[Rfam]
RNA sequence: UAACAUUUUCGGGGCAAGGCGAAAUUCCUUACCGAUGGUAAUAGUCCAUGAACCUUAAUUGGUUGAUUCAGUGAAAUUCUGAAACCGACGGUAUAGUCCGGAUGGUAGAAAAUGUCA
Numbered sequence: 001u002a003a004c005a006u007u008u009u010c011g012g013g014g015c016a017a018g019g020c021g022a023a024a025u026u027c028c029u030u031a032c033c034g035a036u037g038g039u040a041a042u043a044g045u046c047c048a049u050g051a052a053c054c055u056u057a058a059u060u061g062g063u064u065g066a067u068u069c070a071g072u073g074a075a076a077u078u079c080u081g082a083a084a085c086c087g088a089c090g091g092u093a094u095a096g097u098c099c100g101g102a103u104g105g106u107a108g109a110a111a112a113u114g115u116c117a
Base pairs, nucleotide, nucleotide: 003115004114005113006112007111008110009109010108017029018028019027031097032096033087034086035049036048037047038046044085045084052063053062054061067083068082069081070080071079089100090099091098
Shown here is a 117-nucleotide RNA sequence from Mesoplasma florum, a member of the family "FMN riboswitch aptamer (RFN element)". The RFN element is a highly conserved domain that is found frequently in the 5'-untranslated regions of prokaryotic mRNAs that encode for flavin mononucleotide (FMN) biosynthesis and transport proteins. The family's consensus secondary structure is taken from published work. Rfam's curators put it in the seed alignment.